[Rfam]
RNA sequence: GUGGCGGAUGCUGAAAAGCCAAAAGAGUAGGUA
Numbered sequence: 001g002u003g004g005c006g007g008a009u010g011c012u013g014a015a016a017a018g019c020c021a022a023a024a025g026a027g028u029a030g031g032u033a
Base pairs, nucleotide, nucleotide: 003020004019005018010032011031012030